[Rfam]
RNA sequence: GAAACAGGCCGCCUUAUCGCUUCGGCCCGAUAGCUAUCGGGAUCGGAGAGGAAAGUCCGGACAACAUAGGGUGCCAUGCUUCUCAAAAGGAAGGGCUGCAGUUUUAAAGCUGUAGGACAGAGAGUGCCGCAGAGAUAUACCGCCACGUCCCGAUAGCUAUCGGGAUCGGGGUAAGGGUGAAAAGGUGGAGUAAGAGCCCACCGUGCUGGUGGUGACAUCAGUAGCUAGGUAAACCUCGUGGGUUGAAAUGUCAUGUAUACCAGGGCUGUCCCGAAUCCCGAUAGCUAUCGGGAUGGGAUGAAAGGGCUACCCGCUCGAUCCUGGAGGGUAGGCAGAAUAGAUAAAUGAUAAGGCUUCUCACUUUUGUGAGUUGACAGAAUCCGGCUUAUAGGCCUGUUUUUUUU
Dot-bracket structure: ((((((((((((((((((.((((((.((...........)).))))))....[[[.[[[[[((((...[[[[.((((((((((.....)))))(.((((((((....))))))))..)((...(((((...........(((((.((..(.............)..)).)))..)).......(((((.........)))))(((((((((....)))))))).)..)))..)))))))))))))...((((.......(((((.......................................((((.]]]]))))...)))))......))))............)))))))..........................]]]]]]]].).))))))))))....

A member of the RNA family "Bacterial RNase P class A" from Owenweeksia hongkongensis, 404 nucleotides long.
It is annotated as a ribozyme.
For this family Rfam cites "Ribonuclease P: unity and diversity in a tRNA processing ribozyme" (Frank and Pace, Annu Rev Biochem, 1998).